The record is a 57-nucleotide RNA sequence from Herbidospora galbida, which matches "L17-Actino-Proteobacteria ribosomal protein leader" in Rfam. The family's RNA type in Rfam is cis-regulatory leader. For this family Rfam cites "Discovery of 20 novel ribosomal leader candidates in bacteria and archaea" (Eckert and Weinberg, BMC Microbiol, 2020).
RNA sequence: CCGCUAGAACGAUCAUUUAGAUCGGCCCGACCCCGGUACCUGAUACGGCCGGGGCGG
Numbered sequence: 001c002c003g004c005u006a007g008a009a010c011g012a013u014c015a016u017u018u019a020g021a022u023c024g025g026c027c028c029g030a031c032c033c034c035g036g037u038a039c040c041u042g043a044u045a046c047g048g049c050c051g052g053g054g055c056g057g
Stems, first nucleotide, its partner, number of pairs: 001025003005021001008018002027057003031054007
Dot-bracket structure: (((.(..((.......))..).))).(((.(((((((..........))))))))))